Rfam assigns this 147-nucleotide RNA from Moellerella wisconsensis to the family "Leucine operon leader".
RNA sequence: AAUGAGCCAGCUAUUAUGAUUAAAUCAAUUCGCCUACUAAGCCUACUACUAAUCGCAUCUCGAGUGCGCGGUAUGCUUAUAGGUGGAAAAUAAGCUGAGAAAUCUUCCACUAGAUUAAGAAAACCCGCGCAAGCCGCGGGUUUUUUU
Numbered sequence: 001a002a003u004g005a006g007c008c009a010g011c012u013a014u015u016a017u018g019a020u021u022a023a024a025u026c027a028a029u030u031c032g033c034c035u036a037c038u039a040a041g042c043c044u045a046c047u048a049c050u051a052a053u054c055g056c057a058u059c060u061c062g063a064g065u066g067c068g069c070g071g072u073a074u075g076c077u078u079a080u081a082g083g084u085g086g087a088a089a090a091u092a093a094g095c096u097g098a099g100a101a102a103u104c105u106u107c108c109a110c111u112a113g114a115u116u117a118a119g120a121a122a123a124c125c126c127g128c129g130c131a132a133g134c135c136g137c138g139g140g141u142u143u144u145u146u147u
Stems, first nucleotide, its partner, number of pairs: 004110001006108001009105002012102001014101002017098001019096001030086007039077001047073004054068004120144010

At least 6 amino acid operons are known to be regulated by attenuation. Lineage of the source: Bacteria > Pseudomonadati > Pseudomonadota > Moellerella > Moellerella wisconsensis. It is annotated as a cis-regulatory leader. Its family is annotated with leucine biosynthetic process in the Gene Ontology. On this family, see Kolter and Yanofsky, Annu Rev Genet 1982: "Attenuation in amino acid biosynthetic operons".